The record is a 47-nucleotide RNA sequence from Kolteria novifilia, which matches "Acido-Lenti-1 RNA" in Rfam.
Lineage of the source: Bacteria > Planctomycetota > Kolteriales > Kolteriaceae > Kolteria.

[Rfam]
Nucleotides: 047
Stems, first nucleotide, its partner, number of pairs: 001021005006015003034046005
Number, partner (000 for none) and nucleotide at each position: 001021c002020c003019u004018g005017g006015g007014g008013c009000u010000a011000a012000c013008g014007c015006c016000a017005c018004c019003a020002g021001g022000c023000u024000a025000c026000g027000u028000g029000a030000u031000g032000u033000c034046g035045c036044c037043c038042c039000u040000u041000c042038g043037g044036g045035g046034c047000u
It is annotated as a small RNA.